[Rfam]
RNA sequence: GUGGGAACGGCACGGCUGCAAAUCUGACCCGUCGCGCGGUUCGCGCGACUCGAGAUUGCAGUAGUGC
Numbered sequence: 001g002u003g004g005g006a007a008c009g010g011c012a013c014g015g016c017u018g019c020a021a022a023u024c025u026g027a028c029c030c031g032u033c034g035c036g037c038g039g040u041u042c043g044c045g046c047g048a049c050u051c052g053a054g055a056u057u058g059c060a061g062u063a064g065u066g067c
Stems, first nucleotide, its partner, number of pairs: 010067004015062007024054002031049007
Overview
S15-Halobacteria ribosomal protein leader: a 67-nucleotide RNA. The literature on the family includes a 2020 paper in BMC Microbiol by Eckert and Weinberg, "Discovery of 20 novel ribosomal leader candidates in bacteria and archaea".